[Rfam]
Nucleotides: 074
Stems, first nucleotide, its partner, number of pairs: 008020004038059009
Number, partner (000 for none) and nucleotide at each position: 001000g002000u003000u004000g005000c006000a007000u008020g009019c010018c011017c012000u013000c014000c015000u016000u017011g018010g019009g020008c021000g022000u023000u024000u025000c026000c027000u028000c029000c030000c031000u032000a033000g034000a035000c036000u037000u038059g039058g040057g041056c042055c043054g044053c045052c046051c047000c048000u049000c050000g051046g052045g053044g054043c055042g056041g057040c058039u059038c060000c061000u062000u063000u064000c065000g066000u067000u068000c069000g070000g071000g072000a073000g074000a

Rfam assigns this 74-nucleotide RNA sequence from Lichenifustis flavocetrariae to the family "Makes More Granules Regulator RNA (mmgR)". Rfam's curators write: SuhB later renamed mmgR (makes more granules regulator) was a putative non-coding RNA found multiple times in the Agrobacterium tumefaciens genome and related alpha-proteobacteria. Other non-coding RNAs uncovered in the same analysis include: speF, ybhL, metA, and serC.Several studies inSinorhizobium meliloti showed that suhB element is indeed a non-coding RNA:firstly it was detected on Northern blot and called Sm8RNA, secondly in an RNAseq study referred to as SmelC689.The mutant phenotype's (strain lacking the small RNA) cytoplasm contains higher content of polyhydroxybutyrate (PBH)storage granules than wild type strain. The sRNA is required to limit the PBH intracellular accumulation when the nitrogen-fixing Sinorhizobium meliloti is under condition of surplus carbon in relation to nitrogen. It is annotated as a small RNA. The source organism's lineage runs through Bacteria, Pseudomonadota, Alphaproteobacteria, Hyphomicrobiales and Lichenifustis.